[Rfam]
RNA sequence: UCGGGGCGGCUGCCAUCUGUCUGCCUGUCUGUGCCUGCUGUACAGGAUAGGAAGGUCUGCACAGCAAGUGUAGACAGGCAGACACAACACAACUCUCUC
Numbered sequence: 001u002c003g004g005g006g007c008g009g010c011u012g013c014c015a016u017c018u019g020u021c022u023g024c025c026u027g028u029c030u031g032u033g034c035c036u037g038c039u040g041u042a043c044a045g046g047a048u049a050g051g052a053a054g055g056u057c058u059g060c061a062c063a064g065c066a067a068g069u070g071u072a073g074a075c076a077g078g079c080a081g082a083c084a085c086a087a088c089a090c091a092a093c094u095c096u097c098u099c
Stems, first nucleotide, its partner, number of pairs: 018084002022080009034068001036066006043059003
The family of this 99-nucleotide RNA from Oncorhynchus tshawytscha is "mir-214 microRNA precursor family".
The match comes from Rfam's covariance-model search (72 bits).
Taxonomically the source falls in Oncorhynchus (Eukaryota, Bilateria, Chordata, Teleostomi).